RNA sequence: GGUGUGUGUACUUAGGGACAUAACGAAGCAAUCGUUCCCCUUUUACUAAAGAUUGCCGUGUAGUAAGUAUGUUAAAUACAAUAUACCACGAAUUUUUGUCGCGCCUAUUAAGUUAGGUGCU
Numbered sequence: 001g002g003u004g005u006g007u008g009u010a011c012u013u014a015g016g017g018a019c020a021u022a023a024c025g026a027a028g029c030a031a032u033c034g035u036u037c038c039c040c041u042u043u044u045a046c047u048a049a050a051g052a053u054u055g056c057c058g059u060g061u062a063g064u065a066a067g068u069a070u071g072u073u074a075a076a077u078a079c080a081a082u083a084u085a086c087c088a089c090g091a092a093u094u095u096u097u098g099u100c101g102c103g104c105c106u107a108u109u110a111a112g113u114u115a116g117g118u119g120c121u
Base pairs, nucleotide, nucleotide: 003080004079005078006077009069010068011067012066013065014064018061019060020059029055030054031053032052033051035049036048101120102119103118104117105116106115

Source information
The record is a 121-nucleotide RNA from Plasmodium falciparum, which matches "U5 spliceosomal RNA" in Rfam. The base pairs follow the family's consensus structure, which is taken from published work.